Background:
The record is a 108-nucleotide RNA sequence from Sporosarcina sp. JAI121, which matches "SAM riboswitch aptamer (S box leader)" in Rfam. Lineage of the source: Bacteria > Bacillati > Bacillota > Caryophanaceae > Sporosarcina. The match comes from Rfam's covariance-model search (92 bits). Pairs were carried over by alignment from the consensus structure, which is taken from published work.
[Rfam]
RNA sequence: UUCUUAUCUAGAGAGGUAUAGGGACUGGCCCGAUGACACCUCAGCAACCAGCUAUUCUAGCACGGUGCUAAUUCCAGCAAGUCGGAAAUACGACUUGGUAGAUGAGGA
Number, nucleotide and partner (000 for none) at each position: 001u108002u107003c106004u105005u104006a103007u102008c101009u000010a000011g000012a000013g042014a041015g040016g039017u038018a000019u000020a000021g031022g030023g029024a000025c077026u076027g075028g074029c023030c022031c021032g000033a000034u000035g000036a000037c000038a017039c016040c015041u014042c013043a069044g068045c067046a066047a000048c065049c064050a000051g061052c060053u059054a058055u000056u000057c000058u054059a053060g052061c051062a000063c000064g049065g048066u046067g045068c044069u043070a000071a000072u000073u100074c028075c027076a026077g025078c097079a096080a095081g094082u093083c092084g000085g000086a000087a000088a000089u000090a000091c000092g083093a082094c081095u080096u079097g078098g000099u000100a073101g008102a007103u006104g005105a004106g003107g002108a001